[Rfam]
RNA sequence: UUCUUAUCUAGAGAGGUGGAGGGACUGGCCCUUUGAAACCUCGGCAGCGGAUCUGAACGGAUGUCUCCGUCAGAAACUGUGCCAACUCCAGCACGCCUGUGGGCGUGACAGAUGAGGA
Numbered sequence: 001u002u003c004u005u006a007u008c009u010a011g012a013g014a015g016g017u018g019g020a021g022g023g024a025c026u027g028g029c030c031c032u033u034u035g036a037a038a039c040c041u042c043g044g045c046a047g048c049g050g051a052u053c054u055g056a057a058c059g060g061a062u063g064u065c066u067c068c069g070u071c072a073g074a075a076a077c078u079g080u081g082c083c084a085a086c087u088c089c090a091g092c093a094c095g096c097c098u099g100u101g102g103g104c105g106u107g108a109c110a111g112a113u114g115a116g117g118a
Base pairs, nucleotide, nucleotide: 001118002117003116004115005114006113007112008111013042014041015040016039017038021031022030023029025091026090027089028088043083044082045081046080048079049078052074053073054072055071056070087110092107093106094105095104096103097102

Rfam assigns this 118-nucleotide sequence from Halobacillus sp. BAB-2008 to the family "SAM riboswitch aptamer (S box leader)". A search with the family's covariance model found it, with a score of 84 bits.